[Rfam]
Rfam assigns this 67-nucleotide sequence from Bacillus sp. J14TS2 to the family "Bacillaceae-1 RNA". Rfam classes the family as a small RNA.

RNA sequence: UGAUGUAAAAGAAAGGCUAAAUUCGCGCCGUCCUGGCGCAACGCCUUCCUGACCAACAUCCUGUUGG
Number, nucleotide and partner (000 for none) at each position: 001u000002g000003a000004u000005g000006u000007a000008a000009a000010a000011g049012a000013a047014a046015g045016g044017c043018u000019a000020a000021a000022u000023u000024c000025g039026c038027g037028c036029c035030g000031u000032c000033c000034u000035g029036g028037c027038g026039c025040a000041a000042c000043g017044c016045c015046u014047u013048c000049c011050u000051g000052a000053c067054c066055a065056a064057c063058a000059u000060c000061c000062u000063g057064u056065u055066g054067g053

Lineage of the source: Bacteria > Bacillati > Bacilli > Caryophanales > Bacillus. It scores 64 bits against the family's covariance model.